[Rfam]
RNA sequence: UCUCGCGACAGGGAUGGGGUUCCCCUUUACGCCGGUCGGCUGAUGACUCCUGCCAAUUC
Dot-bracket structure: .........[[[[..((((((.]]]]....(((....)))....)))))).........
RNA: Fluoride riboswitch aptamer (crcB RNA motif)